[Rfam]
A member of the RNA family "nrdJ RNA" from Streptomyces sp. FxanaC1, 84 nucleotides long. Lineage of the source: Bacteria > Bacillati > Kitasatosporales > Streptomycetaceae > Streptomyces.

RNA sequence: ACCUGUGUCGGGGCGAGAGCAGGGCGCCCCGGUAUCAGAAAGACAUACACCGUGCCACGGAAUGCGUGCGCACAUAUGGGCGUU
Numbered sequence: 001a002c003c004u005g006u007g008u009c010g011g012g013g014c015g016a017g018a019g020c021a022g023g024g025c026g027c028c029c030c031g032g033u034a035u036c037a038g039a040a041a042g043a044c045a046u047a048c049a050c051c052g053u054g055c056c057a058c059g060g061a062a063u064g065c066g067u068g069c070g071c072a073c074a075u076a077u078g079g080g081c082g083u084u
Base pairs, nucleotide, nucleotide: 004037005036006034007033008032009031010030011029012028013027014026015025052073053072054071055070057067058066

The family's consensus secondary structure is taken from published work. The sequence is in the family's curated seed alignment.